[Rfam]
RNA sequence: UGACGGGGGCCCGCACAAGCGGUGGAGCAUGUGGUUUAAUUCGAAGCAACGCGAAGAACCUUACCAGGGCUUGACAUCCCGCUGACCGCCCCAGAGAUGGGGUUUCCCUCCUUUCGGAGGGCAGCGGUGACAGGUGGUGCAUGGUUGUCGUCAGCUCGUGUCGUGAGAUGUUGGGUUAAGUCCCGCAACGAGCGCAACCCCUGCCCCUAGUUGCCAGCGGGUGAGGCCGGGCACUCUAGGGGGACUGCCGGCGACAAGCCGGAGGAAGGUGGGGAUGACGUCAAAUCAUCAUGCCCCUUAUGCCCUGGGCUACACACGUGCUACAAUGGCCGGUACAAAGGGUUGCGAACCCGCGAGGGGGAGCCAAUCCCAAAAAGCCGGUCUCAGUUCGGAUUGCAGGCUGCAACUCGCCUGCAUGAAGGCGGAAUCGCUAGUAAUCGCGGAUCAGCAUGCCGCGGUGAAUACGUUCCCGGGCCUUGUACACACCGCCCGUCACACCACGAGAGUCUGCAACACCCGAAGUCGGUGCGCCAACCCCUUACGGGGAGGCAGCCGCCGAAGGUGGGGCAGAUGAUUGGGGUGAAGUCGUAACAAGG
Numbered sequence: 001u002g003a004c005g006g007g008g009g010c011c012c013g014c015a016c017a018a019g020c021g022g023u024g025g026a027g028c029a030u031g032u033g034g035u036u037u038a039a040u041u042c043g044a045a046g047c048a049a050c051g052c053g054a055a056g057a058a059c060c061u062u063a064c065c066a067g068g069g070c071u072u073g074a075c076a077u078c079c080c081g082c083u084g085a086c087c088g089c090c091c092c093a094g095a096g097a098u099g100g101g102g103u104u105u106c107c108c109u110c111c112u113u114u115c116g117g118a119g120g121g122c123a124g125c126g127g128u129g130a131c132a133g134g135u136g137g138u139g140c141a142u143g144g145u146u147g148u149c150g151u152c153a154g155c156u157c158g159u160g161u162c163g164u165g166a167g168a169u170g171u172u173g174g175g176u177u178a179a180g181u182c183c184c185g186c187a188a189c190g191a192g193c194g195c196a197a198c199c200c201c202u203g204c205c206c207c208u209a210g211u212u213g214c215c216a217g218c219g220g221g222u223g224a225g226g227c228c229g230g231g232c233a234c235u236c237u238a239g240g241g242g243g244a245c246u247g248c249c250g251g252c253g254a255c256a257a258g259c260c261g262g263a264g265g266a267a268g269g270u271g272g273g274g275a276u277g278a279c280g281u282c283a284a285a286u287c288a289u290c291a292u293g294c295c296c297c298u299u300a301u302g303c304c305c306u307g308g309g310c311u312a313c314a315c316a317c318g319u320g321c322u323a324c325a326a327u328g329g330c331c332g333g334u335a336c337a338a339a340g341g342g343u344u345g346c347g348a349a350c351c352c353g354c355g356a357g358g359g360g361g362a363g364c365c366a367a368u369c370c371c372a373a374a375a376a377g378c379c380g381g382u383c384u385c386a387g388u389u390c391g392g393a394u395u396g397c398a399g400g401c402u403g404c405a406a407c408u409c410g411c412c413u414g415c416a417u418g419a420a421g422g423c424g425g426a427a428u429c430g431c432u433a434g435u436a437a438u439c440g441c442g443g444a445u446c447a448g449c450a451u452g453c454c455g456c457g458g459u460g461a462a463u464a465c466g467u468u469c470c471c472g473g474g475c476c477u478u479g480u481a482c483a484c485a486c487c488g489c490c491c492g493u494c495a496c497a498c499c500a501c502g503a504g505a506g507u508c509u510g511c512a513a514c515a516c517c518c519g520a521a522g523u524c525g526g527u528g529c530g531c532c533a534a535c536c537c538c539u540u541a542c543g544g545g546g547a548g549g550c551a552g553c554c555g556c557c558g559a560a561g562g563u564g565g566g567g568c569a570g571a572u573g574a575u576u577g578g579g580g581u582g583a584a585g586u587c588g589u590a591a592c593a594a595g596g
Base pairs, nucleotide, nucleotide: 001483002482003480004479005478007477008476009475010474011473012472013471015467016466019431020430021429022428023427024324026322027321028320029319030318031317032316033315034313035312040055041054042053043052064308065307066306067305068304069303070302077130078129079127080126081125082124083123088103089102090101091100092099093098106121107120108119109118110117111116133297134296136295137294138293139292142291143290144286145285146284147282149280150279154193155192156191157190158189159188160169161168162167172185173184174183175182199274200273201272202271204242205241206240207239208238209237210236214231215230218229219228220227245265246264248262249261250260251259252258328383329382330381331380332379333378334377340371341370342369345364346363350359351358352357390421395416396415397414398413399412400411401410437459438458439457440456441455442454443453486595488592491588492587496582497581498580499579501577502576503575506572507571508570509569510568511567514564515563516562517561522557524555525554526553527552530550531549532548535546536545537544538543

This 596-nucleotide part of an RNA from Calditerricola satsumensis belongs to the Rfam family "Bacterial small subunit ribosomal RNA". The source organism's lineage runs through Bacteria, Bacillota, Caryophanales, Bacillaceae and Calditerricola. A search with the family's covariance model found it, with a score of 1600 bits. Rfam 15.1 lists 42,628 matches to the family in 10,626 species.